[Rfam]
RNA sequence: AGGAACAACUGCUGUGGCGGGGCCAGCUCUGGAAACCUGGAUUCAGGCCCCACAUUCACUCCGGAGCUCUCUGUCUGCAGGGCCUGGAUGCUCUGGGGCGGG
Numbered sequence: 001a002g003g004a005a006c007a008a009c010u011g012c013u014g015u016g017g018c019g020g021g022g023c024c025a026g027c028u029c030u031g032g033a034a035a036c037c038u039g040g041a042u043u044c045a046g047g048c049c050c051c052a053c054a055u056u057c058a059c060u061c062c063g064g065a066g067c068u069c070u071c072u073g074u075c076u077g078c079a080g081g082g083c084c085u086g087g088a089u090g091c092u093c094u095g096g097g098g099c100g101g102g
Stems, first nucleotide, its partner, number of pairs: 002094003006090002009086001011084001012082002016075007025068009038054002
RNA: mir-8834 microRNA precursor family